[Rfam]
RNA sequence: ACAGAUACUGUAAACAUCCUACACUCUCAGCUGUGAACAGUAAGGAGCUGGGAGAAGGCUGUUUACUCUCUCUGC
Numbered sequence: 001a002c003a004g005a006u007a008c009u010g011u012a013a014a015c016a017u018c019c020u021a022c023a024c025u026c027u028c029a030g031c032u033g034u035g036a037a038c039a040g041u042a043a044g045g046a047g048c049u050g051g052g053a054g055a056a057g058g059c060u061g062u063u064u065a066c067u068c069u070c071u072c073u074g075c
Base pairs, nucleotide, nucleotide: 002074003073004072005071010066011065012064013063014062015061016060018058019057020056024054025053026052027051028050029049030048031047032046
RNA: mir-30 microRNA precursor family
Organism: Heterocephalus glaber